[Rfam]
RNA sequence: GCACCCUUUUAAUGGCAGUCCAGAGAGGCUGACAAAGGGGAAUAGGAAACAGAUGAAUCUAUGGAAGGAUUCUCGUUUCUCUGUACCCUCUUUGUAUACAAGCAAAGAGGUUUUUUUAU
Number, nucleotide and partner (000 for none) at each position: 001g000002c000003a000004c039005c038006c037007u036008u035009u034010u000011a000012a000013u000014g000015g000016c031017a030018g029019u028020c027021c000022a000023g000024a000025g000026a000027g020028g019029c018030u017031g016032a000033c000034a009035a008036a007037g006038g005039g004040g000041a000042a000043u000044a000045g000046g000047a080048a000049a078050c000051a076052g000053a000054u000055g072056a071057a070058u069059c068060u067061a000062u000063g000064g000065a000066a000067g060068g059069a058070u057071u056072c055073u000074c000075g000076u051077u000078u049079c000080u047081c000082u000083g114084u000085a112086c000087c110088c109089u108090c107091u106092u105093u104094g103095u102096a000097u000098a000099c000100a000101a000102g095103c094104a093105a092106a091107g090108a089109g088110g087111u000112u085113u000114u083115u000116u000117u000118a000119u000
RNA: PyrR binding site
Organism: Bacillus coahuilensis